Background: Shown here is a 75-nucleotide RNA sequence from Allonocardiopsis opalescens, a member of the family "ASpks TB sRNA". It scores 75 bits against the family's covariance model. By type it is an antisense RNA.
RNA sequence: CUUCAGCGAGCCCAGGUACAGCGGUCGGCCCUCGGGGCGCUCCUGCCCGUAGGUGGCCAGGAGGGCCUGCGCCUC
Number, nucleotide and partner (000 for none) at each position: 001c000002u000003u000004c000005a000006g000007c000008g000009a000010g000011c000012c000013c000014a000015g025016g000017u023018a000019c000020a000021g000022c000023g017024g000025u015026c000027g000028g000029c000030c000031c071032u000033c069034g000035g000036g000037g000038c065039g000040c000041u000042c000043c060044u059045g058046c000047c056048c055049g054050u000051a000052g000053g000054u049055g048056g047057c000058c045059a044060g043061g000062a000063g000064g000065g038066c000067c000068u000069g033070c000071g031072c000073c000074u000075c000